This 85-nucleotide RNA from Sparus aurata belongs to the Rfam family "Mammalian CPEB3 ribozyme".

RNA sequence: AAGUCGGAGUUUGGGAUCAAGGUAGAAGCAUUCAUGUUGCAAUCCCCGUCAAGUAAUACCACCAAUGUUACUUGCGAAUUCUACC
Number, nucleotide and partner (000 for none) at each position: 001a000002a000003g000004u000005c000006g000007g000008a000009g000010u000011u000012u000013g046014g045015g044016a043017u042018c000019a000020a000021g085022g084023u083024a082025g081026a080027a079028g040029c039030a038031u000032u000033c000034a000035u000036g000037u000038u030039g029040c028041a000042a017043u016044c015045c014046c013047c000048g000049u000050c074051a073052a072053g071054u070055a069056a068057u067058a066059c000060c000061a000062c000063c000064a000065a000066u058067g057068u056069u055070a054071c053072u052073u051074g050075c000076g000077a000078a000079u027080u026081c025082u024083a023084c022085c021
Lineage of the source: Eukaryota > Eumetazoa > Actinopterygii > Euacanthomorphacea > Sparus.
Rfam links the family to the GO term RNA nuclease activity.